[Rfam]
RNA: Lysine riboswitch aptamer
Organism: Halanaerobium saccharolyticum
RNA sequence: AGAUGGGGUAGAGGCGCGAAUUUAGAUUAGUAUUUUUCAACUUUAGCUUAAACCGCUGUUGUUUAAAAAAAGCUGAUUCGCCGAAGUUUUCAGUCAGGGUUUAAUGGCUGUCUGCUGGGUCUGUAUAAAAAAUAUGCAGAACUGUCAUUAGUAGUUUUAUCCAGGCUGCUGAUGUUGAGCUAUCUCAAAA
Numbered sequence: 001a002g003a004u005g006g007g008g009u010a011g012a013g014g015c016g017c018g019a020a021u022u023u024a025g026a027u028u029a030g031u032a033u034u035u036u037u038c039a040a041c042u043u044u045a046g047c048u049u050a051a052a053c054c055g056c057u058g059u060u061g062u063u064u065a066a067a068a069a070a071a072g073c074u075g076a077u078u079c080g081c082c083g084a085a086g087u088u089u090u091c092a093g094u095c096a097g098g099g100u101u102u103a104a105u106g107g108c109u110g111u112c113u114g115c116u117g118g119g120u121c122u123g124u125a126u127a128a129a130a131a132a133u134a135u136g137c138a139g140a141a142c143u144g145u146c147a148u149u150a151g152u153a154g155u156u157u158u159a160u161c162c163a164g165g166c167u168g169c170u171g172a173u174g175u176u177g178a179g180c181u182a183u184c185u186c187a188a189a190a
Stems, first nucleotide, its partner, number of pairs: 006185006016081006023075003035067003039063003085116003091110006117143002120140008146174010